Description: The record is a 214-nucleotide sequence from Sulfobacillus sp. hq2, which matches "HNH endonuclease-associated RNA and ORF (HEARO) RNA" in Rfam. The family has 139 seed sequences and 952 matches in Rfam 15.1. It is annotated as a non-coding RNA gene. A reference for the family is Weinberg et al. (2009), "Exceptional structured noncoding RNAs revealed by bacterial metagenome analysis", Nature. The source organism's lineage runs through Bacteria, Bacillati, Clostridia, Eubacteriales and Sulfobacillus. The match comes from Rfam's covariance-model search (115 bits).
RNA sequence: GUCAACCACCCCGCCCUGAAGGGCGGAGCUUGUCGUAAGCUCCACGGUUGACCAGCCUUAGCCUCUUCACGAGACUCCGUUCGGUCGGUGCACACCCAGGGGUGCUUCUCCAGCCCCUGGCUCUGUGGGUUCACGUUAAAAGCCAGCUCGGGGUAGUGCAAGCGGUGCGUGGACGGCUUUCGACCCGACCGAACAUUGGCGAGGAGAGAUGUGC
Numbered sequence: 001g002u003c004a005a006c007c008a009c010c011c012c013g014c015c016c017u018g019a020a021g022g023g024c025g026g027a028g029c030u031u032g033u034c035g036u037a038a039g040c041u042c043c044a045c046g047g048u049u050g051a052c053c054a055g056c057c058u059u060a061g062c063c064u065c066u067u068c069a070c071g072a073g074a075c076u077c078c079g080u081u082c083g084g085u086c087g088g089u090g091c092a093c094a095c096c097c098a099g100g101g102g103u104g105c106u107u108c109u110c111c112a113g114c115c116c117c118u119g120g121c122u123c124u125g126u127g128g129g130u131u132c133a134c135g136u137u138a139a140a141a142g143c144c145a146g147c148u149c150g151g152g153g154u155a156g157u158g159c160a161a162g163c164g165g166u167g168c169g170u171g172g173a174c175g176g177c178u179u180u181c182g183a184c185c186c187g188a189c190c191g192a193a194c195a196u197u198g199g200c201g202a203g204g205a206g207a208g209a210u211g212u213g214c
Stems, first nucleotide, its partner, number of pairs: 001052007010028001012025002015022002029039003055200003060076002063073002079194010092126002096120008104210001106208006129174008140166001142163002146159002